[Rfam]
RNA: mir-544 microRNA precursor family
Organism: Physeter macrocephalus
RNA sequence: AUCAUCCAGGGAUCUUGUUAGAAAUGCAGAUUCUGAUUCAGUGGGUCUGGGUGGAGCCUGAGAUUCUGCAUUUCUAACAAGAUCCCAGGUGACACUGA
Numbered sequence: 001a002u003c004a005u006c007c008a009g010g011g012a013u014c015u016u017g018u019u020a021g022a023a024a025u026g027c028a029g030a031u032u033c034u035g036a037u038u039c040a041g042u043g044g045g046u047c048u049g050g051g052u053g054g055a056g057c058c059u060g061a062g063a064u065u066c067u068g069c070a071u072u073u074c075u076a077a078c079a080a081g082a083u084c085c086c087a088g089g090u091g092a093c094a095c096u097g098a
Stems, first nucleotide, its partner, number of pairs: 003091003009085003014081007022073003026069005032063003
Dot-bracket structure: ..(((...(((..(((((((.(((.(((((.(((..........................))).))))).))).))))))).)))...))).......